[Rfam]
RNA: Archaeal large subunit ribosomal RNA, nucleotides 907 to 1352
Organism: Methanothrix soehngenii
RNA sequence: CCUCCCGAAACAUAUCGCAGUAUGACCUGGUCUGAGAUAGUCGGCGGAGUAGAGCACUGAUUGGGGAAGCCGGACUCGAAAGGGUCUGUUCUCUUGUCAAACUCCAAAACCGCCGUCGUCGUAGACGACCAGCAGUCCGGGCUGGGGGGUAAGCUUCUAGUCCGUGAGGGAGACAACCCUGACCGUGGUUAAGGUCCCCAAAUAUCGGCCAAGUGUCAACACUUAAGGGAGUCCUGGGUCAUAAACAACUGGGAGGUUAGCUUAGAAGCAGCUAUCCUUUAAAGAGUGCGUAACAGCUCACCAGUCGAGAUUCAGGGCCCCGAAAAUGGACGGGGCUAAGCCGAUUACCGAUACCACGGAGCACCGCAAGGUGAUCUAGUAGGGAGGCGCUCUGCGUGGGCAGAAGCAUCUGCGUGAGCAGGUGUGGACCGCGUAGAGACGAAAAU
Numbered sequence: 001c002c003u004c005c006c007g008a009a010a011c012a013u014a015u016c017g018c019a020g021u022a023u024g025a026c027c028u029g030g031u032c033u034g035a036g037a038u039a040g041u042c043g044g045c046g047g048a049g050u051a052g053a054g055c056a057c058u059g060a061u062u063g064g065g066g067a068a069g070c071c072g073g074a075c076u077c078g079a080a081a082g083g084g085u086c087u088g089u090u091c092u093c094u095u096g097u098c099a100a101a102c103u104c105c106a107a108a109a110c111c112g113c114c115g116u117c118g119u120c121g122u123a124g125a126c127g128a129c130c131a132g133c134a135g136u137c138c139g140g141g142c143u144g145g146g147g148g149g150u151a152a153g154c155u156u157c158u159a160g161u162c163c164g165u166g167a168g169g170g171a172g173a174c175a176a177c178c179c180u181g182a183c184c185g186u187g188g189u190u191a192a193g194g195u196c197c198c199c200a201a202a203u204a205u206c207g208g209c210c211a212a213g214u215g216u217c218a219a220c221a222c223u224u225a226a227g228g229g230a231g232u233c234c235u236g237g238g239u240c241a242u243a244a245a246c247a248a249c250u251g252g253g254a255g256g257u258u259a260g261c262u263u264a265g266a267a268g269c270a271g272c273u274a275u276c277c278u279u280u281a282a283a284g285a286g287u288g289c290g291u292a293a294c295a296g297c298u299c300a301c302c303a304g305u306c307g308a309g310a311u312u313c314a315g316g317g318c319c320c321c322g323a324a325a326a327u328g329g330a331c332g333g334g335g336c337u338a339a340g341c342c343g344a345u346u347a348c349c350g351a352u353a354c355c356a357c358g359g360a361g362c363a364c365c366g367c368a369a370g371g372u373g374a375u376c377u378a379g380u381a382g383g384g385a386g387g388c389g390c391u392c393u394g395c396g397u398g399g400g401c402a403g404a405a406g407c408a409u410c411u412g413c414g415u416g417a418g419c420a421g422g423u424g425u426g427g428a429c430c431g432c433g434u435a436g437a438g439a440c441g442a443a444a445a446u
Stems, first nucleotide, its partner, number of pairs: 001387006011024005026135001027132006036120003040117001042115006052105001053103002059098003063094006072087006139163009168179003183359007193349003202346001204345006227321003231318010248305005254278003259273003279283001284299001288297002360377002362373004388441001390438010406425008